A member of the RNA family "MIR2275 microRNA precursor family" from Apium graveolens, 109 nucleotides long.
The base pairs follow the family's consensus structure, which was predicted with RNAalifold.
Rfam links the family to the GO terms RISC complex and miRNA-mediated post-transcriptional gene silencing.

[Rfam]
RNA sequence: UGAUCGAAAGUGAGAAUUGGAUAAAACUAAACACAAUGGCAGUUCAAUGACAGUUGAGCAUAGUUUCCUGCCUUCUGUUUAGUUUUCUCCAAUAUCUCAUCUCCGAUCU
Dot-bracket structure: ...(((.(..((((.((((((.((((((((.((..........................................)).)))))))).))))))..))))..).)))...
Numbered sequence: 001u002g003a004u005c006g007a008a009a010g011u012g013a014g015a016a017u018u019g020g021a022u023a024a025a026a027c028u029a030a031a032c033a034c035a036a037u038g039g040c041a042g043u044u045c046a047a048u049g050a051c052a053g054u055u056g057a058g059c060a061u062a063g064u065u066u067c068c069u070g071c072c073u074u075c076u077g078u079u080u081a082g083u084u085u086u087c088u089c090c091a092a093u094a095u096c097u098c099a100u101c102u103c104c105g106a107u108c109u
Stems, first nucleotide, its partner, number of pairs: 004106003008102001011099004016093006023086008032077002